A member of the RNA family "6S / SsrS RNA", 182 nucleotides long. About the family: E. coli 6S RNA was the first non coding RNA to be sequenced, but its function was unknown until recently. It consists of 184 nucleotides that fold into an extended hairpin structure with a large single-stranded internal bulge. The 6S RNA specifically associates with RNA polymerase holoenzyme containing the sigma70 specificity factor.
[Rfam]
RNA sequence: CAAAACCUGCUGUGUGCGUUGACAUUUUAUGUCUUAAACCAAUGAUUUUGUAUAGGAAGACCGAUAUUUAAGUAACUACAUCGCGCCUAUUUAUAGGAGGAUGAAAGUUACUUGUGAGGACAUCCACCUUGGAGUUCGGUUUACUUAGGCAUAAAAAGAACAACGGCAUUUGCGGGAAAAAA
Numbered sequence: 001c002a003a004a005a006c007c008u009g010c011u012g013u014g015u016g017c018g019u020u021g022a023c024a025u026u027u028u029a030u031g032u033c034u035u036a037a038a039c040c041a042a043u044g045a046u047u048u049u050g051u052a053u054a055g056g057a058a059g060a061c062c063g064a065u066a067u068u069u070a071a072g073u074a075a076c077u078a079c080a081u082c083g084c085g086c087c088u089a090u091u092u093a094u095a096g097g098a099g100g101a102u103g104a105a106a107g108u109u110a111c112u113u114g115u116g117a118g119g120a121c122a123u124c125c126a127c128c129u130u131g132g133a134g135u136u137c138g139g140u141u142u143a144c145u146u147a148g149g150c151a152u153a154a155a156a157a158g159a160a161c162a163a164c165g166g167c168a169u170u171u172g173c174g175g176g177a178a179a180a181a182a
Stems, first nucleotide, its partner, number of pairs: 006176005012169004017165003031150003035143006055125003059121001061119002066115001070113007081101002086097004

It scores 61 bits against the family's covariance model.